[Rfam]
RNA sequence: GUGAUAUUGGUCAAUCACAAUGUCACAAUGCUUGUGAAAGAGAGAGAAACACAAACAUUGUGACAUUGUAAUUGACCAAUAUCAC
Numbered sequence: 001g002u003g004a005u006a007u008u009g010g011u012c013a014a015u016c017a018c019a020a021u022g023u024c025a026c027a028a029u030g031c032u033u034g035u036g037a038a039a040g041a042g043a044g045a046g047a048a049a050c051a052c053a054a055a056c057a058u059u060g061u062g063a064c065a066u067u068g069u070a071a072u073u074g075a076c077c078a079a080u081a082u083c084a085c
Base pairs, nucleotide, nucleotide: 001085002084003083004082005081006080007079008078009077010076011075012074013073014072015071017069018068019067020066021065022064023063024062025061026060027059028058029057030056032054033053034052035051036050
Dot-bracket structure: (((((((((((((((.((((((((((((((.(((((.............))))).)))))))))))))).)))))))))))))))